[Rfam]
RNA sequence: ACAUUCUGCUGGAUGGUCGCGCUACUUUUGGAAAACAAGAGAGUGAGGAAAGUCCGGACACCAGGAAACACGGGACCGGGUAAUUCCCGGAGUUUUUUCUUUGAGAGAAAUUUUAGGGAAAAAAUAUGGAAAGUGCAACAGAAAGGAUACCGCCUCGUCGAAGAAAUUCGGCGCGGUAAGGGUGAAAUGGCGGGGUAAGAGCCCACCUUCGAUUUCGAGAGAGAUCGGGAACGGUAAACCCUCCCGGGUGCAAUCUCAAAUAGGCAGCCUUUUUGUCGUUUCCGCAGGGCUGUGGGUAGAGAGCAAAGACUCCGAUCGGUAACUUUCGGAGCAAGAUAAAUGAUCAUCCAUCUCUUCAGGAGAGGACAGAAUCCGGCUUAUAGGCAGAAUGUUGGU
Numbered sequence: 001a002c003a004u005u006c007u008g009c010u011g012g013a014u015g016g017u018c019g020c021g022c023u024a025c026u027u028u029u030g031g032a033a034a035a036c037a038a039g040a041g042a043g044u045g046a047g048g049a050a051a052g053u054c055c056g057g058a059c060a061c062c063a064g065g066a067a068a069c070a071c072g073g074g075a076c077c078g079g080g081u082a083a084u085u086c087c088c089g090g091a092g093u094u095u096u097u098u099c100u101u102u103g104a105g106a107g108a109a110a111u112u113u114u115a116g117g118g119a120a121a122a123a124a125u126a127u128g129g130a131a132a133g134u135g136c137a138a139c140a141g142a143a144a145g146g147a148u149a150c151c152g153c154c155u156c157g158u159c160g161a162a163g164a165a166a167u168u169c170g171g172c173g174c175g176g177u178a179a180g181g182g183u184g185a186a187a188u189g190g191c192g193g194g195g196u197a198a199g200a201g202c203c204c205a206c207c208u209u210c211g212a213u214u215u216c217g218a219g220a221g222a223g224a225u226c227g228g229g230a231a232c233g234g235u236a237a238a239c240c241c242u243c244c245c246g247g248g249u250g251c252a253a254u255c256u257c258a259a260a261u262a263g264g265c266a267g268c269c270u271u272u273u274u275g276u277c278g279u280u281u282c283c284g285c286a287g288g289g290c291u292g293u294g295g296g297u298a299g300a301g302a303g304c305a306a307a308g309a310c311u312c313c314g315a316u317c318g319g320u321a322a323c324u325u326u327c328g329g330a331g332c333a334a335g336a337u338a339a340a341u342g343a344u345c346a347u348c349c350a351u352c353u354c355u356u357c358a359g360g361a362g363a364g365g366a367c368a369g370a371a372u373c374c375g376g377c378u379u380a381u382a383g384g385c386a387g388a389a390u391g392u393u394g395g396u
Base pairs, nucleotide, nucleotide: 001392002391003390004389005388006387007386008385009384010383011381012348013347014346015345016344017343018342020045021044022043023042026039027038028037050379051378052377054376055375056374057373058372059250060249061248062247067281068280071246072245073244074243075242076090077089078088079087080086091127092125093124094123095122096121097120098119099118100117101116102115103114104113105112106111128241129240133239134238135235136234150181151180152177153176154175156173157172158171159170160169161168162167189207190206192204193203194202208230209228210227211226212225213224214223215222216221254302255301256300257299264293265292266291267290268289269288273287274286275285276284310331311330312329313328314327315326318323
Bacterial RNase P class A: a 396-nucleotide sequence from Leptospira borgpetersenii. It is annotated as a ribozyme.